[Rfam]
RNA sequence: UGCCUUACGAGAUGUCGUAAGGGCUGAGAAUUGUUGUCAACAGUUCGCCAGCGAGCUCCGAUAAGAGCGGUUGGG
Numbered sequence: 001u002g003c004c005u006u007a008c009g010a011g012a013u014g015u016c017g018u019a020a021g022g023g024c025u026g027a028g029a030a031u032u033g034u035u036g037u038c039a040a041c042a043g044u045u046c047g048c049c050a051g052c053g054a055g056c057u058c059c060g061a062u063a064a065g066a067g068c069g070g071u072u073g074g075g
Stems, first nucleotide, its partner, number of pairs: 003022008052070001055068004
Background: This 75-nucleotide RNA belongs to the Rfam family "RT-6 RNA". The family's RNA type in Rfam is small RNA. The base pairs follow the family's consensus structure, which is taken from published work. It is one of the family's seed sequences.